[Rfam]
RNA sequence: GGGCUAAUGAUGACAAAUGCUAUAUCUUAGCCAAUUUCAGUGAGAUUUUAUCGAUGAUCUGAAUGCUAGACACACUGUAGCUU
Numbered sequence: 001g002g003g004c005u006a007a008u009g010a011u012g013a014c015a016a017a018u019g020c021u022a023u024a025u026c027u028u029a030g031c032c033a034a035u036u037u038c039a040g041u042g043a044g045a046u047u048u049u050a051u052c053g054a055u056g057a058u059c060u061g062a063a064u065g066c067u068a069g070a071c072a073c074a075c076u077g078u079a080g081c082u083u
Stems, first nucleotide, its partner, number of pairs: 001083005
Dot-bracket structure: (((((.........................................................................)))))

Rfam assigns this 83-nucleotide RNA from Papaver somniferum to the family "Small nucleolar RNA R11/Z151". Rfam 15.1 lists 802 matches to the family in 218 species. The match comes from Rfam's covariance-model search (61 bits). It is annotated as a C/D-box small nucleolar RNA.